[Rfam]
RNA sequence: UUUGGUGCAGUGAUUAUAAAACAUUCCUCGUACUGAAGGGAAGCCCCCAGUGAACGACAUCUAUACACCCAUAGAAUCUGAGCACCA
Numbered sequence: 001u002u003u004g005g006u007g008c009a010g011u012g013a014u015u016a017u018a019a020a021a022c023a024u025u026c027c028u029c030g031u032a033c034u035g036a037a038g039g040g041a042a043g044c045c046c047c048c049a050g051u052g053a054a055c056g057a058c059a060u061c062u063a064u065a066c067a068c069c070c071a072u073a074g075a076a077u078c079u080g081a082g083c084a085c086c087a
Base pairs, nucleotide, nucleotide: 003087004086006084007083
The record is an 87-nucleotide RNA from Hordeum vulgare, which matches "Small nucleolar RNA snoR8a" in Rfam. The family has 7 seed sequences and 956 matches in Rfam 15.1. It scores 64 bits against the family's covariance model. The family's consensus secondary structure was predicted with WAR. It is annotated as a C/D-box small nucleolar RNA.